A member of the RNA family "mir-44 microRNA precursor family" from Caenorhabditis briggsae, 82 nucleotides long. Lineage of the source: Eukaryota > Opisthokonta > Metazoa > Bilateria > Caenorhabditis.
[Rfam]
RNA sequence: AGUGCCACGCUGGAUGUGCUCGUUAGUCAUAGUAACCUCAUCAAUUCAGGCUUAUGACUAGAGACACAUUCAGCUUGGCGCC
Numbered sequence: 001a002g003u004g005c006c007a008c009g010c011u012g013g014a015u016g017u018g019c020u021c022g023u024u025a026g027u028c029a030u031a032g033u034a035a036c037c038u039c040a041u042c043a044a045u046u047c048a049g050g051c052u053u054a055u056g057a058c059u060a061g062a063g064a065c066a067c068a069u070u071c072a073g074c075u076u077g078g079c080g081c082c
Stems, first nucleotide, its partner, number of pairs: 003080005010073009020064002025059007